[Rfam]
RNA sequence: CCUUGACUGCAAUCAAGCAGACACUAGCCACGACAAGGAGAUUAAAAUG
Numbered sequence: 001c002c003u004u005g006a007c008u009g010c011a012a013u014c015a016a017g018c019a020g021a022c023a024c025u026a027g028c029c030a031c032g033a034c035a036a037g038g039a040g041a042u043u044a045a046a047a048u049g
Stems, first nucleotide, its partner, number of pairs: 002037004007020004